[Rfam]
RNA: Bacterial RNase P class A
RNA sequence: GGAGAGGACCGGGCGACCGCUGGUUGGCGCUUCAUCGCGUCGACGGGAGGAAAGUCCGGGCGGCACAGGGCAGGGUGGUGGGUAACUCCCACCGGCCGCGAGGCCAGGGCAAGUGCAACAGAAAGCAAACCGCCGAUGGGAACGACGGUAGCGGCUCCGCCGCCAAGGCGUUCCACAGGUAAGGGUGAAACGGUGCGGUAAGAGCGCACCAGCGGGCGGGGCGACUCGCUCGGCUAGGUAAACCCCACCCGACGCAAGGCCAAACAGGGGGCAUGAGUCGGCCCGACUCGCUAUCGACCCCCGGGUAGGCUGCUCGAGGCGGCGGGCAACCGCCGCCCUAGAGGAAUGGUCGCCGCCACGCUGGCAACAGCGCGGCACAAAACCCGGCUUACAGGUCCUCUCCGGCU
Numbered sequence: 001g002g003a004g005a006g007g008a009c010c011g012g013g014c015g016a017c018c019g020c021u022g023g024u025u026g027g028c029g030c031u032u033c034a035u036c037g038c039g040u041c042g043a044c045g046g047g048a049g050g051a052a053a054g055u056c057c058g059g060g061c062g063g064c065a066c067a068g069g070g071c072a073g074g075g076u077g078g079u080g081g082g083u084a085a086c087u088c089c090c091a092c093c094g095g096c097c098g099c100g101a102g103g104c105c106a107g108g109g110c111a112a113g114u115g116c117a118a119c120a121g122a123a124a125g126c127a128a129a130c131c132g133c134c135g136a137u138g139g140g141a142a143c144g145a146c147g148g149u150a151g152c153g154g155c156u157c158c159g160c161c162g163c164c165a166a167g168g169c170g171u172u173c174c175a176c177a178g179g180u181a182a183g184g185g186u187g188a189a190a191c192g193g194u195g196c197g198g199u200a201a202g203a204g205c206g207c208a209c210c211a212g213c214g215g216g217c218g219g220g221g222c223g224a225c226u227c228g229c230u231c232g233g234c235u236a237g238g239u240a241a242a243c244c245c246c247a248c249c250c251g252a253c254g255c256a257a258g259g260c261c262a263a264a265c266a267g268g269g270g271g272c273a274u275g276a277g278u279c280g281g282c283c284c285g286a287c288u289c290g291c292u293a294u295c296g297a298c299c300c301c302c303g304g305g306u307a308g309g310c311u312g313c314u315c316g317a318g319g320c321g322g323c324g325g326g327c328a329a330c331c332g333c334c335g336c337c338c339u340a341g342a343g344g345a346a347u348g349g350u351c352g353c354c355g356c357c358a359c360g361c362u363g364g365c366a367a368c369a370g371c372g373c374g375g376c377a378c379a380a381a382a383c384c385c386g387g388c389u390u391a392c393a394g395g396u397c398c399u400c401u402c403c404g405g406c407u
Base pairs, nucleotide, nucleotide: 001403002402003401004400005399006398007397008396009395010394011392012354013353014352015351016350017349018348020047021046023044024043025042026041027040028039029038030037052390053389054388056387057386058385059384060383061254062253064251068284069283070282071281073250074249075248076247077246078092079091080090081089082088093107094105095104096103097102108245109244113243114242115239116238130184131183132180133179134178137175138174139173140172192210193209194208195207196206197205212234213232214231215230216229217228218227219226220225258311259310260309261308268302269301270300271299275289276288277287278286279285318337319336320335321334322333323332324331325330